[Rfam]
RNA: NLPC-P60 RNA
Organism: Streptomyces sp. KhCrAH-244
RNA sequence: GGGUUCUUGCAUCACCUCCCGCCACGGGUGAGCGUAUGGACGAAUUGCGCUCACUCAUGGGGUAGUCGCACGAUUCACCCCGUUUCGGAGGU
Numbered sequence: 001g002g003g004u005u006c007u008u009g010c011a012u013c014a015c016c017u018c019c020c021g022c023c024a025c026g027g028g029u030g031a032g033c034g035u036a037u038g039g040a041c042g043a044a045u046u047g048c049g050c051u052c053a054c055u056c057a058u059g060g061g062g063u064a065g066u067c068g069c070a071c072g073a074u075u076c077a078c079c080c081c082g083u084u085u086c087g088g089a090g091g092u
Stems, first nucleotide, its partner, number of pairs: 027055004033049004059081005064075004